Shown here is a 105-nucleotide RNA from Cynara cardunculus, a member of the family "Small nucleolar RNA Z103".
Rfam classes the family as a C/D-box small nucleolar RNA.
Pairs were carried over by alignment from the consensus structure, which was predicted with PFOLD.
RNA sequence: UUGGAAGUGAUGAUUAUUUCCCCAGAUGAUCGAAGUUGAUUAUACUGAGCGCAUUUUAUUAAAUUCUCCUUAUCAGGGAGAAUCCAAGCCAGAAAUCUGAUCCAC
Numbered sequence: 001u002u003g004g005a006a007g008u009g010a011u012g013a014u015u016a017u018u019u020c021c022c023c024a025g026a027u028g029a030u031c032g033a034a035g036u037u038g039a040u041u042a043u044a045c046u047g048a049g050c051g052c053a054u055u056u057u058a059u060u061a062a063a064u065u066c067u068c069c070u071u072a073u074c075a076g077g078g079a080g081a082a083u084c085c086a087a088g089c090c091a092g093a094a095a096u097c098u099g100a101u102c103c104a105c
Base pairs, nucleotide, nucleotide: 002104003103004102005101